[Rfam]
RNA sequence: UUCUUUCGGGUCUGUAGUUGCGAGGCGGCCCCGCCGCCUUCAGUCCAUGGCAGACGCGGUCGAAAGGACCCACGUAAGCGCCCGCUUCGGCGGCGCGCGAGCACGGCGCGUUCUAGAGGUAAGUCGCAUCGCUCGUUUCCAUAAUCCGCGGCACGAUGCCGCGGCGGGCGAGAGGGUGAUGGUGAGAGCUCAGCCCCAAUGCGCGAGUGUGGGGGCGAAGACUAGGUCAGCCGAUUGAA
Numbered sequence: 001u002u003c004u005u006u007c008g009g010g011u012c013u014g015u016a017g018u019u020g021c022g023a024g025g026c027g028g029c030c031c032c033g034c035c036g037c038c039u040u041c042a043g044u045c046c047a048u049g050g051c052a053g054a055c056g057c058g059g060u061c062g063a064a065a066g067g068a069c070c071c072a073c074g075u076a077a078g079c080g081c082c083c084g085c086u087u088c089g090g091c092g093g094c095g096c097g098c099g100a101g102c103a104c105g106g107c108g109c110g111u112u113c114u115a116g117a118g119g120u121a122a123g124u125c126g127c128a129u130c131g132c133u134c135g136u137u138u139c140c141a142u143a144a145u146c147c148g149c150g151g152c153a154c155g156a157u158g159c160c161g162c163g164g165c166g167g168g169c170g171a172g173a174g175g176g177u178g179a180u181g182g183u184g185a186g187a188g189c190u191c192a193g194c195c196c197c198a199a200u201g202c203g204c205g206a207g208u209g210u211g212g213g214g215g216c217g218a219a220g221a222c223u224a225g226g227u228c229a230g231c232c233g234a235u236u237g238a239a
Stems, first nucleotide, its partner, number of pairs: 001239003006234004012230003015224005047210003050060001053112006069106002082093002104217001125203005130170008174196004182189002
RNA: raiA RNA
Organism: Berryella wangjianweii